[Rfam]
RNA: Acido-Lenti-1 RNA
Nucleotides: 046
Stems, first nucleotide, its partner, number of pairs: 001020008033045005
Number, partner (000 for none) and nucleotide at each position: 001020c002019c003018u004017a005016g006015g007014g008013c009000u010000g011000a012000a013008g014007c015006c016005c017004u018003a019002g020001g021000c022000u023000u024000u025000g026000u027000u028000c029000u030000u031000g032000a033045g034044g035043g036042c037041u038000u039000u040000c041037a042036g043035c044034c045033c046000a